[Rfam]
RNA sequence: GUAAUUGUUUUCUAGGGUUCCGCAACAAAUGUUGGACUGGUCCGAGAGAAAACACACAGUAACUACUGUGACACGGAAGGAUAAAAGCCUGGGAGAU
Numbered sequence: 001g002u003a004a005u006u007g008u009u010u011u012c013u014a015g016g017g018u019u020c021c022g023c024a025a026c027a028a029a030u031g032u033u034g035g036a037c038u039g040g041u042c043c044g045a046g047a048g049a050a051a052a053c054a055c056a057c058a059g060u061a062a063c064u065a066c067u068g069u070g071a072c073a074c075g076g077a078a079g080g081a082u083a084a085a086a087g088c089c090u091g092g093g094a095g096a097u
Base pairs, nucleotide, nucleotide: 007053008052009051010050011049012048015043016042020040021039022037023034024033025032026031055070056069057068058067059066060065072092074095078090079089080088